[Rfam]
RNA sequence: GUGAACUGGUCGGCCGUCUAUUCCUCCCAGAUGCGACCCGACAACGCGAACGUGGUGCACCUCCUCCCGAACCACGCUCAGCUAUAGAGCCCGCUGCUACUUCCUCCCAGCAGCGGGCUUCUUC
Numbered sequence: 001g002u003g004a005a006c007u008g009g010u011c012g013g014c015c016g017u018c019u020a021u022u023c024c025u026c027c028c029a030g031a032u033g034c035g036a037c038c039c040g041a042c043a044a045c046g047c048g049a050a051c052g053u054g055g056u057g058c059a060c061c062u063c064c065u066c067c068c069g070a071a072c073c074a075c076g077c078u079c080a081g082c083u084a085u086a087g088a089g090c091c092c093g094c095u096g097c098u099a100c101u102u103c104c105u106c107c108c109a110g111c112a113g114c115g116g117g118c119u120u121c122u123u124c
Base pairs, nucleotide, nucleotide: 007043008042012038013037015035016034017033048079049078051076052075053074054073055072056071088119089118090117091116092115093114094113095112096111097110098109

The record is a 124-nucleotide sequence from Allomesorhizobium alhagi, which matches "Alphaproteobacterial ar14" in Rfam.
The pairing is the family consensus, mapped onto this sequence.
Smr14C2 was renamed NfeR1 (Nodule Formation Efficiency RNA) highly expressed in salt stress and during the symbiotic interaction on legume roots.